[Rfam]
RNA sequence: AUGGAGGAUGCUGAAAAUCCUAUAAAAGAGUAGGCU
Numbered sequence: 001a002u003g004g005a006g007g008a009u010g011c012u013g014a015a016a017a018u019c020c021u022a023u024a025a026a027a028g029a030g031u032a033g034g035c036u
Base pairs, nucleotide, nucleotide: 003020004019005018010035011034012033

Overview
A member of the RNA family "DUF805b RNA", 36 nucleotides long. It is annotated as a cis-regulatory element.